Shown here is an 85-nucleotide RNA from Dethiosulfatibacter aminovorans, a member of the family "Glycine riboswitch aptamer".
RNA sequence: GGACAAACUUCUGGAGAGACUCGAAAGAGCACCGAAGGGGCAAGCAUAAUGCGAAACUCUCAGGUAAAAGGACAGAGGCAGAAAU
Numbered sequence: 001g002g003a004c005a006a007a008c009u010u011c012u013g014g015a016g017a018g019a020c021u022c023g024a025a026a027g028a029g030c031a032c033c034g035a036a037g038g039g040g041c042a043a044g045c046a047u048a049a050u051g052c053g054a055a056a057c058u059c060u061c062a063g064g065u066a067a068a069a070g071g072a073c074a075g076a077g078g079c080a081g082a083a084a085u
Base pairs, nucleotide, nucleotide: 008078009077010076011075012074013073020029021028022027031065032064033063034061035060038059039058040057044052045051
About the family: This family represents the bacterial glycine riboswitch. Glycine riboswitches usually consist of two metabolite-binding aptamers domains with similar structures in tandem. The aptamers cooperatively bind glycine to regulate the expression of downstream genes. In Bacillus subtilis, this riboswitch is found upstream of the gcvT operon which controls glycine degradation.